This 79-nucleotide sequence from Alligator mississippiensis belongs to the Rfam family "Mammalian CPEB3 ribozyme". The match comes from Rfam's covariance-model search (47 bits). The base pairs follow the family's consensus structure, which is taken from published work.

[Rfam]
RNA sequence: AGAGGUCACAAGUUUGAGGCCAUAGCAGAAGAGAUCACAGCGCAACCUGUCAGAUUCCAAUGAAUCUGUGAAUUCUGCU
Number, nucleotide and partner (000 for none) at each position: 001a000002g000003a000004g000005g000006u000007c000008a000009c000010a000011a000012g000013u000014u000015u000016g000017a000018g047019g046020c000021c000022a000023u000024a079025g078026c077027a076028g075029a074030a073031g043032a000033g041034a000035u000036c000037a000038c000039a000040g000041c033042g000043c031044a000045a000046c019047c018048u000049g000050u000051c068052a067053g066054a065055u064056u063057c062058c000059a000060a000061u000062g057063a056064a055065u054066c053067u052068g051069u000070g000071a000072a000073u030074u029075c028076u027077g026078c025079u024